The record is a 119-nucleotide RNA from Desulforamulus hydrothermalis, which matches "Molybdenum/Tungsten riboswitch aptamer (Moco RNA motif)" in Rfam.
Pairs were carried over by alignment from the consensus structure, which is taken from published work.

RNA sequence: AUUAUCUUGUUUCUCCGAGCCGGUUGUCCUAAGGCUUUAUGCGACGGAUUGCCGGCCGCUAGGGUAAGCCGGGAAACCGGUUUGCCUCCCGUGUGGAAAGGAGAGUGAUGAAGAUGUUA
Number, nucleotide and partner (000 for none) at each position: 001a000002u000003u113004a000005u000006c110007u000008u000009g000010u000011u105012u104013c103014u102015c101016c100017g000018a000019g056020c055021c054022g053023g052024u051025u000026g049027u048028c047029c046030u000031a000032a000033g000034g042035c041036u000037u000038u000039a000040u000041g035042c034043g000044a000045c000046g029047g028048a027049u026050u000051g024052c023053c022054g021055g020056c019057c000058g000059c000060u000061a000062g087063g086064g085065u084066a083067a082068g081069c080070c079071g078072g077073g000074a000075a000076a000077c072078c071079g070080g069081u068082u067083u066084g065085c064086c063087u062088c096089c095090c000091g000092u000093g000094u000095g089096g088097a000098a000099a000100g016101g015102a014103g013104a012105g011106u000107g000108a000109u000110g006111a000112a000113g003114a000115u000116g000117u000118u000119a000
Lineage of the source: Bacteria > Eubacteriales > Peptococcaceae > Desulforamulus > Desulforamulus hydrothermalis. The match comes from Rfam's covariance-model search (81 bits). On this family, see Regulski et al., Mol Microbiol 2008: "in molybdenum cofactor and tungsten cofactor metabolism".